A member of the RNA family "Small nucleolar RNA snoR60" from Brassica carinata, 67 nucleotides long. Its family is annotated with RNA processing and nucleolus in the Gene Ontology. The match comes from Rfam's covariance-model search (42 bits). The literature on the family includes a 2000 paper in J Biol Chem by Barneche et al., "Fibrillarin genes encode both a conserved nucleolar protein and a novel small nucleolar RNA involved in ribosomal RNA methylation in Arabidopsis thaliana".

RNA sequence: CAGCAUAUGAUGACCCUGGACGUGGAUUCCCCUUCGUGGGGAAUGCAAAUUCCAUGUUUUUGAUGCU
Dot-bracket structure: .((((..........................................................))))